[Rfam]
RNA sequence: ACGAUGUUCCGCUGUCCUGUAGUGAGAUAAGAGCAUUAG
Numbered sequence: 001a002c003g004a005u006g007u008u009c010c011g012c013u014g015u016c017c018u019g020u021a022g023u024g025a026g027a028u029a030a031g032a033g034c035a036u037u038a039g
Stems, first nucleotide, its partner, number of pairs: 003037007013029004018024001
Rfam assigns this 39-nucleotide sequence from Lentibacillus sp. CBA3610 to the family "Ribosomal protein L19 leader".
Lineage of the source: Bacteria > Bacillota > Bacilli > Caryophanales > Lentibacillus.
A reference for the family is Zengel and Lindahl (1994), "Diverse mechanisms for regulating ribosomal protein synthesis in Escherichia coli", Prog Nucleic Acid Res Mol Biol.
The family's consensus secondary structure was predicted with CMfinder.
Rfam classes the family as a cis-regulatory leader.